[Rfam]
RNA: glmS glucosamine-6-phosphate activated ribozyme aptamer
RNA sequence: UUUUCGCUAUGAGCGCUAGGGCUGCUGUGCCGCACGGCAGUUAACGAGGGCGGAGGUUCCCCACCGCGGGGUGGGGCUAACGGCCACACGGGCGGAAGCCCGCAGGCUGGCCGGAAAAUCGAAAGACCAGCGGAUGCCUCCCAGGCGCACCAUCGCCUGCGAGCGUCCCCACAAGGCUCCCCGGCGACGGGCGAGAGGAAAGCGGGGCGCGGUGGUGAAC
Numbered sequence: 001u002u003u004u005c006g007c008u009a010u011g012a013g014c015g016c017u018a019g020g021g022c023u024g025c026u027g028u029g030c031c032g033c034a035c036g037g038c039a040g041u042u043a044a045c046g047a048g049g050g051c052g053g054a055g056g057u058u059c060c061c062c063a064c065c066g067c068g069g070g071g072u073g074g075g076g077c078u079a080a081c082g083g084c085c086a087c088a089c090g091g092g093c094g095g096a097a098g099c100c101c102g103c104a105g106g107c108u109g110g111c112c113g114g115a116a117a118a119u120c121g122a123a124a125g126a127c128c129a130g131c132g133g134a135u136g137c138c139u140c141c142c143a144g145g146c147g148c149a150c151c152a153u154c155g156c157c158u159g160c161g162a163g164c165g166u167c168c169c170c171a172c173a174a175g176g177c178u179c180c181c182c183g184g185c186g187a188c189g190g191g192c193g194a195g196a197g198g199a200a201a202g203c204g205g206g207g208c209g210c211g212g213u214g215g216u217g218a219a220c
Stems, first nucleotide, its partner, number of pairs: 020042008029033001052141005061130001142159006163210007177195003180191004